[Rfam]
RNA sequence: CGGCCGGGACGACCCGGUCGUGGUCACCACUCGGGGACGGCCCCA
Number, nucleotide and partner (000 for none) at each position: 001c020002g019003g018004c017005c016006g015007g014008g013009a000010c000011g000012a000013c008014c007015c006016g005017g004018u003019c002020g001021u000022g000023g000024u000025c000026a000027c000028c000029a000030c000031u000032c000033g044034g043035g042036g041037a000038c000039g000040g000041c036042c035043c034044c033045a000

A member of the RNA family "Guanidine-II riboswitch aptamer (mini-ykkC)" from Microbacterium maritypicum, 45 nucleotides long. Rfam describes the family as follows. Simpler in structure and has fewer highly conserved nucleotide positions than the ykkC-yxkD leader. Despite this each of its two stem-loop structures directly bind free guanidine. Therefore, mini-ykkC RNA motif represents a distinct class of guanidine-sensing RNAs. Its crystal structure was also determined. The base pairs follow the family's consensus structure, which is taken from published work. Taxonomically the source falls in Microbacterium maritypicum (Bacteria, Bacillati, Actinomycetes, Microbacterium).